[Rfam]
Nucleotides: 159
Stems, first nucleotide, its partner, number of pairs: 011144004018040007041139006051074001075124003083098004101118004
Number, partner (000 for none) and nucleotide at each position: 001000c002000g003000c004000g005000g006000u007000g008000g009000c010000c011144u012143g013142c014141c015000g016000a017000a018040u019039c020038c021037a022036u023035g024034c025000a026000g027000c028000c029000a030000g031000g032000a033000g034024g035023c036022a037021u038020g039019g040018a041139a042138c043137c044136g045135g046134g047000g048000a049000c050000c051074c052000a053000u054000c055000a056000g057000g058000u059000a060000c061000g062000c063000a064000c065000a066000c067000g068000c069000g070000a071000c072000c073000a074051g075124g076123g077122g078000u079000g080000a081000a082000u083098c084097g085096g086095c087000a088000u089000c090000g091000u092000c093000a094000u095086g096085c097084c098083g099000u100000a101118g102117g103116g104115c105000a106000u107000c108000c109000u110000u111000c112000c113000c114000u115104g116103c117102c118101c119000g120000a121000a122077u123076c124075c125000g126000u127000c128000a129000g130000c131000u132000a133000a134046c135045c136044c137043g138042g139041u140000a141014g142013g143012c144011a145000u146000c147000a148000g149000a150000g151000g152000a153000a154000g155000u156000c157000c158000c159000a
A member of the RNA family "c-di-AMP riboswitch aptamer (ydaO/yuaA leader)" from Planobispora rosea, 159 nucleotides long. NCBI's taxonomy places the organism under Bacteria, Bacillati, Streptosporangiales, Streptosporangiaceae, Planobispora. A search with the family's covariance model found it, with a score of 88 bits.